[Rfam]
RNA sequence: UGGCGCCCAACGUGAGGCAUCUGGUACAGAGGGCACAGUGACGGAACCAUCCGAGAGAGCGUGCACAAGAGAAAGCCAGUAAAAGAGAGAGCCGGCAAGAGAGUAAAAGAGGCAAAAGAGAGAAUAAAAGAGGCCUGCACCGCAGUUGCCUGCUGCGAUGUCGGAACCUCGGUAAGUGGACGGCACCCUUUUCCCCUUUCCCUUGACGAUCGACAGGCAUUAAGUGAAUGAGAUAUUUGUAGAAAGUGAGCAGAGUAUUAAAGGCGCCAGGAGUAAAGGUUAAAAUUAAGGAUUAUUAUGAGACUUUUGGACCUAAAAGGGUCCC
Numbered sequence: 001u002g003g004c005g006c007c008c009a010a011c012g013u014g015a016g017g018c019a020u021c022u023g024g025u026a027c028a029g030a031g032g033g034c035a036c037a038g039u040g041a042c043g044g045a046a047c048c049a050u051c052c053g054a055g056a057g058a059g060c061g062u063g064c065a066c067a068a069g070a071g072a073a074a075g076c077c078a079g080u081a082a083a084a085g086a087g088a089g090a091g092c093c094g095g096c097a098a099g100a101g102a103g104u105a106a107a108a109g110a111g112g113c114a115a116a117a118g119a120g121a122g123a124a125u126a127a128a129a130g131a132g133g134c135c136u137g138c139a140c141c142g143c144a145g146u147u148g149c150c151u152g153c154u155g156c157g158a159u160g161u162c163g164g165a166a167c168c169u170c171g172g173u174a175a176g177u178g179g180a181c182g183g184c185a186c187c188c189u190u191u192u193c194c195c196c197u198u199u200c201c202c203u204u205g206a207c208g209a210u211c212g213a214c215a216g217g218c219a220u221u222a223a224g225u226g227a228a229u230g231a232g233a234u235a236u237u238u239g240u241a242g243a244a245a246g247u248g249a250g251c252a253g254a255g256u257a258u259u260a261a262a263g264g265c266g267c268c269a270g271g272a273g274u275a276a277a278g279g280u281u282a283a284a285a286u287u288a289a290g291g292a293u294u295a296u297u298a299u300g301a302g303a304c305u306u307u308u309g310g311a312c313c314u315a316a317a318a319g320g321g322u323c324c325c
Stems, first nucleotide, its partner, number of pairs: 006033003012027003130170004138163001139161002141157005177215002181212003221260003224256002267310008277296001278294004